The record is a 153-nucleotide RNA sequence from Azorhizobium oxalatiphilum, which matches "Alphaproteobacterial sRNA ar45" in Rfam. The source organism's lineage runs through Bacteria, Pseudomonadati, Pseudomonadota, Xanthobacteraceae and Azorhizobium. The match comes from Rfam's covariance-model search (58 bits). For this family Rfam cites "A survey of sRNA families in alpha-proteobacteria" (del Val et al., RNA Biol, 2012). It is annotated as a small RNA.
[Rfam]
RNA sequence: GCCCAAUUUCGCACGUGCCUGUGGUUGCGUGCCGAUCGGCGGAAGUCCGGACAAGAGGCCGGAAAGCCGCCAGCCAGAUCGGUAGCCGGAGGGAACCGGCCCACCCUGCUCUCAGCAGGGGACGUGACUUGAAGCAACGACGUACGGGCUUUU
Dot-bracket structure: ((((....(((....(((....((((((((.......(((((...(((((........)))))...))))).......(((((...........)))))(((...(((....)))...)))))))))))....))).))).....))))....